This 147-nucleotide sequence from Enhydra lutris belongs to the Rfam family "U4 spliceosomal RNA". Gene Ontology terms of the family: spliceosomal tri-snRNP complex assembly and U4 snRNP. For this family Rfam cites "The uRNA database" (Zwieb, Nucleic Acids Res, 1997). It is annotated as a spliceosomal small nuclear RNA.
RNA sequence: AGCUUUGUGCAGUGGCAAUAUCAUAGCCAAUGAGGUUUAUCCGAGGUGCAAUUAAUGCUAAUUGAAAAAAAAAACCCCAAAAUAUAAAAUCUUAAUCUCCACAAUACACUUUUUAUUAAGGUUUCAUUAUAUCCAUUUUAUAGAAAG
Numbered sequence: 001a002g003c004u005u006u007g008u009g010c011a012g013u014g015g016c017a018a019u020a021u022c023a024u025a026g027c028c029a030a031u032g033a034g035g036u037u038u039a040u041c042c043g044a045g046g047u048g049c050a051a052u053u054a055a056u057g058c059u060a061a062u063u064g065a066a067a068a069a070a071a072a073a074a075c076c077c078c079a080a081a082a083u084a085u086a087a088a089a090u091c092u093u094a095a096u097c098u099c100c101a102c103a104a105u106a107c108a109c110u111u112u113u114u115a116u117u118a119a120g121g122u123u124u125c126a127u128u129a130u131a132u133c134c135a136u137u138u139u140a141u142a143g144a145a146a147g
Stems, first nucleotide, its partner, number of pairs: 020052002024048001026047003034042002084127002087124010136147004